[Rfam]
RNA sequence: AACACUAAUGCGCUGAAUCCGUAGAACGGGGGAACCAAUUUUGAAUGUGUAAGAUUUACAUUCUUGGGGUGAAUCCAGUAAUGGUAGGGGGACUCUUUCCUUCCGAAUCCGACAGCUAACCUCGUAAGCGUUGACAAAGAGAGUG
Numbered sequence: 001a002a003c004a005c006u007a008a009u010g011c012g013c014u015g016a017a018u019c020c021g022u023a024g025a026a027c028g029g030g031g032g033a034a035c036c037a038a039u040u041u042u043g044a045a046u047g048u049g050u051a052a053g054a055u056u057u058a059c060a061u062u063c064u065u066g067g068g069g070u071g072a073a074u075c076c077a078g079u080a081a082u083g084g085u086a087g088g089g090g091g092a093c094u095c096u097u098u099c100c101u102u103c104c105g106a107a108u109c110c111g112a113c114a115g116c117u118a119a120c121c122u123c124g125u126a127a128g129c130g131u132u133g134a135c136a137a138a139g140a141g142a143g144u145g
Base pairs, nucleotide, nucleotide: 011130012129013128014127018025019024026125027124028123029122030121031120036066037065067110068109069108075084076083077082087104088103089102090101

A member of the RNA family "c-di-AMP riboswitch aptamer (ydaO/yuaA leader)", 145 nucleotides long. The pairing is the family consensus, mapped onto this sequence.